[Rfam]
RNA sequence: GGGUGCUCUGGAUCUGUGUAUCUGGAGCCAGCGUGAAGGGGACAAAGAGAUAAGCCCCGAGUCGAUGUUCAUCAACCCGAGGCCUACUUUAACGCACGACAACGUCAAACUCGCCUCUUACCCGCUGCCAGGCAAGGAGAAGAAGGCAUGAUG
Number, nucleotide and partner (000 for none) at each position: 001g058002g057003g056004u000005g055006c054007u053008c000009u052010g000011g000012a000013u048014c047015u046016g000017u044018g043019u042020a000021u040022c039023u038024g000025g000026a000027g034028c033029c000030a000031g000032c000033g028034u027035g000036a000037a000038g023039g022040g021041g000042a019043c018044a017045a000046a015047g014048a013049g000050a000051u000052a009053a007054g006055c005056c003057c002058c001059g078060a000061g076062u075063c000064g073065a072066u071067g000068u000069u000070c000071a066072u065073c064074a000075a062076c061077c000078c059079g117080a116081g115082g114083c113084c000085u000086a111087c000088u109089u108090u107091a000092a105093c104094g103095c000096a000097c000098g000099a000100c000101a000102a000103c094104g093105u092106c000107a090108a089109a088110c000111u086112c000113g083114c082115c081116u080117c079118u000119u000120a000121c146122c145123c000124g000125c142126u141127g000128c000129c000130a000131g000132g000133c000134a000135a000136g000137g000138a000139g000140a000141a126142g125143a000144a000145g122146g121147c000148a000149u000150g000151a000152u000153g000
A member of the RNA family "sok antitoxin (CssrC)" from Serratia odorifera, 153 nucleotides long. The literature on the family includes a 2007 paper in Mol Microbiol by Kawano et al., "An antisense RNA controls synthesis of an SOS-induced toxin evolved from an antitoxin". Rfam's curators write: Also identified in Shigella as CssrC. It is annotated as an antitoxin RNA. The family's consensus secondary structure is taken from published work. The match comes from Rfam's covariance-model search (69 bits).